Shown here is a 78-nucleotide sequence from Flavobacterium branchiophilum, a member of the family "Flavo-1 RNA". The family's consensus secondary structure is taken from published work. By type it is a small RNA.

RNA sequence: CACUAGCCCAGACAGGAACGACAUCCUUUUGUUUUUUUCUUUAAAAAACAAAAGAUAUAGUGGAUGGCUGGAAAUAGC
Numbered sequence: 001c002a003c004u005a006g007c008c009c010a011g012a013c014a015g016g017a018a019c020g021a022c023a024u025c026c027u028u029u030u031g032u033u034u035u036u037u038u039c040u041u042u043a044a045a046a047a048a049c050a051a052a053a054g055a056u057a058u059a060g061u062g063g064a065u066g067g068c069u070g071g072a073a074a075u076a077g078c
Stems, first nucleotide, its partner, number of pairs: 009070003013066002018061002023056003029051008